Rfam assigns this 69-nucleotide RNA from Pseudomonas sp. HAR-UPW-AIA-41 to the family "narK RNA".
By type it is a cis-regulatory element.
The family's consensus secondary structure is taken from published work.
[Rfam]
RNA sequence: GGCCCGGCACUUGCUAAAGCCCUUUUGACGGCAGCCAAUGAUGGUUGCCCCAUACGGCAAAGGCGUCGC
Numbered sequence: 001g002g003c004c005c006g007g008c009a010c011u012u013g014c015u016a017a018a019g020c021c022c023u024u025u026u027g028a029c030g031g032c033a034g035c036c037a038a039u040g041a042u043g044g045u046u047g048c049c050c051c052a053u054a055c056g057g058c059a060a061a062g063g064c065g066u067c068g069c
Stems, first nucleotide, its partner, number of pairs: 030049007